[Rfam]
RNA sequence: CUGCUAUGAUGGCAGUAAUUUUUGUCAAGAGCAGUUCACCGAAGUGCUGAUACUUUGGGUCUGAGUGA
Numbered sequence: 001c002u003g004c005u006a007u008g009a010u011g012g013c014a015g016u017a018a019u020u021u022u023u024g025u026c027a028a029g030a031g032c033a034g035u036u037c038a039c040c041g042a043a044g045u046g047c048u049g050a051u052a053c054u055u056u057g058g059g060u061c062u063g064a065g066u067g068a
Stems, first nucleotide, its partner, number of pairs: 002067003008026004

This 68-nucleotide RNA from Ailuropoda melanoleuca belongs to the Rfam family "Small nucleolar RNA SNORD56". A search with the family's covariance model found it, with a score of 67 bits. A reference for the family is Galardi et al. (2002), "Purified box C/D snoRNPs are able to reproduce site-specific 2'-O-methylation of target RNA in vitro", Mol Cell Biol. Taxonomically the source falls in Ailuropoda (Eukaryota, Craniata, Eutheria, Caniformia).